[Rfam]
RNA sequence: UGACGGAGCUACACCACAAGGAGUGGAUUGUGCGGCUUAAUUUGACUCAACGCGGGGCACCUUACCAGGGCCACGCGCGCCUGAGACCGCAUGCGCGAGGCGCGCAGGAGUGGUGCAUGGUCGUUGCAAAUUGGUGGGGCGACUUUUGGCUUAAAUGGCCGGAACGAGUGAGAUCUCCGAGACGGGUGCGCGCAGCACAGGAGGGUGGAGGCGAUAACAGAUCAGUGAUGCCCUUAGAUGCCCUGGGCUGCACGCGCAAUACAAUACCCGCGCGCUGCACAGAACGGUCGCGGGGGUGUGGGACCGGCGCCUGUAAGGGCGCCGCGAACGAGGAAUUCCUAGUAACGGCGGCUCAUCAAGGCAUUGUGAAUGUGUCCCUGUAGCUUGUACACACCGCCCGUCACUAUCUCAGAUGGCCGUGUCGGUGAAGGGAGCAAUCUCUGUGCCUCCGCGGCUAGAUAAGAUGUAAGUCGUAACAAGGUUGCGGUCGGUGAACCAGCAGCAGGAUCAUAA
Numbered sequence: 001u002g003a004c005g006g007a008g009c010u011a012c013a014c015c016a017c018a019a020g021g022a023g024u025g026g027a028u029u030g031u032g033c034g035g036c037u038u039a040a041u042u043u044g045a046c047u048c049a050a051c052g053c054g055g056g057g058c059a060c061c062u063u064a065c066c067a068g069g070g071c072c073a074c075g076c077g078c079g080c081c082u083g084a085g086a087c088c089g090c091a092u093g094c095g096c097g098a099g100g101c102g103c104g105c106a107g108g109a110g111u112g113g114u115g116c117a118u119g120g121u122c123g124u125u126g127c128a129a130a131u132u133g134g135u136g137g138g139g140c141g142a143c144u145u146u147u148g149g150c151u152u153a154a155a156u157g158g159c160c161g162g163a164a165c166g167a168g169u170g171a172g173a174u175c176u177c178c179g180a181g182a183c184g185g186g187u188g189c190g191c192g193c194a195g196c197a198c199a200g201g202a203g204g205g206u207g208g209a210g211g212c213g214a215u216a217a218c219a220g221a222u223c224a225g226u227g228a229u230g231c232c233c234u235u236a237g238a239u240g241c242c243c244u245g246g247g248c249u250g251c252a253c254g255c256g257c258a259a260u261a262c263a264a265u266a267c268c269c270g271c272g273c274g275c276u277g278c279a280c281a282g283a284a285c286g287g288u289c290g291c292g293g294g295g296g297u298g299u300g301g302g303a304c305c306g307g308c309g310c311c312u313g314u315a316a317g318g319g320c321g322c323c324g325c326g327a328a329c330g331a332g333g334a335a336u337u338c339c340u341a342g343u344a345a346c347g348g349c350g351g352c353u354c355a356u357c358a359a360g361g362c363a364u365u366g367u368g369a370a371u372g373u374g375u376c377c378c379u380g381u382a383g384c385u386u387g388u389a390c391a392c393a394c395c396g397c398c399c400g401u402c403a404c405u406a407u408c409u410c411a412g413a414u415g416g417c418c419g420u421g422u423c424g425g426u427g428a429a430g431g432g433a434g435c436a437a438u439c440u441c442u443g444u445g446c447c448u449c450c451g452c453g454g455c456u457a458g459a460u461a462a463g464a465u466g467u468a469a470g471u472c473g474u475a476a477c478a479a480g481g482u483u484g485c486g487g488u489c490g491g492u493g494a495a496c497c498a499g500c501a502g503c504a505g506g507a508u509c510a511u512a513a
Stems, first nucleotide, its partner, number of pairs: 001391002003388003007385007016375002020339005025262001027260008035251002041056004065246007075105006088095002109234002112232004118228001119226001120222003123218004130169003134165002136145003147161004175210004183201001186198004267294005300329001305324007345367004350362001352360001396477001399473002402470001405466005411460001414457008424447004429442005482505004487500002490497002

A member of the RNA family "Microsporidia small subunit ribosomal RNA" from Orthosomella operophterae, 513 nucleotides of a longer RNA. Rfam 15.1 lists 1,035 matches to the family in 436 species. Its Rfam clan is "SSU clan". Taxonomically the source falls in Orthosomella (Eukaryota, Fungi, Microsporidia, Apansporoblastina). A reference for the family is Yusupov et al. (2001), "Crystal structure of the ribosome at 5.5 A resolution", Science. Rfam's curators put it in the seed alignment.